[Rfam]
RNA sequence: UCCUGCGGGCUUGUGUAUUUGCCCCGCUGUGGUAGUGUCAGGUUCUGCGUCAUUGACGCCAGAAGCAUUUCGCAAACCCCGCCCUUGGGCGGGGUUUUGCUUUAUC
Numbered sequence: 001u002c003c004u005g006c007g008g009g010c011u012u013g014u015g016u017a018u019u020u021g022c023c024c025c026g027c028u029g030u031g032g033u034a035g036u037g038u039c040a041g042g043u044u045c046u047g048c049g050u051c052a053u054u055g056a057c058g059c060c061a062g063a064a065g066c067a068u069u070u071c072g073c074a075a076a077c078c079c080c081g082c083c084c085u086u087g088g089g090c091g092g093g094g095u096u097u098u099g100c101u102u103u104a105u106c
Stems, first nucleotide, its partner, number of pairs: 004052002019035005074097010
A member of the RNA family "Pseudomonas rnk leader" from Pseudomonas entomophila, 106 nucleotides long.
Its family is annotated with regulation of gene expression in the Gene Ontology.
It is annotated as a cis-regulatory leader.
Rfam's curators put it in the seed alignment.